[Rfam]
Record summary:
The family of this 133-nucleotide RNA sequence from Neogale vison is "Small nucleolar RNA SNORA61". ACA61 is a member of the H/ACA class of snoRNA that guide the sites of modification of uridines to pseudouridines. NCBI's taxonomy places the organism under Eukaryota, Metazoa, Amniota, Mustelinae, Neogale. The base pairs follow the family's consensus structure, which was predicted with PFOLD.

RNA sequence: AAUGUUAUGUUCCCUUUCCCAUCGGAUCUGAACGCUGGUCUUGGUGGUUGUAAAAGGAGGAAAAGGAGCACUGAAGCUGGCCUCAUGGUGCUUAUAGUCUGGUGUAUAGGCUGUGGGCUAGUUUCAAACAGGG
Numbered sequence: 001a002a003u004g005u006u007a008u009g010u011u012c013c014c015u016u017u018c019c020c021a022u023c024g025g026a027u028c029u030g031a032a033c034g035c036u037g038g039u040c041u042u043g044g045u046g047g048u049u050g051u052a053a054a055a056g057g058a059g060g061a062a063a064a065g066g067a068g069c070a071c072u073g074a075a076g077c078u079g080g081c082c083u084c085a086u087g088g089u090g091c092u093u094a095u096a097g098u099c100u101g102g103u104g105u106a107u108a109g110g111c112u113g114u115g116g117g118c119u120a121g122u123u124u125c126a127a128a129c130a131g132g133g
Stems, first nucleotide, its partner, number of pairs: 003060001005058002019047005025040004077121007095109001
It scores 117 bits against the family's covariance model.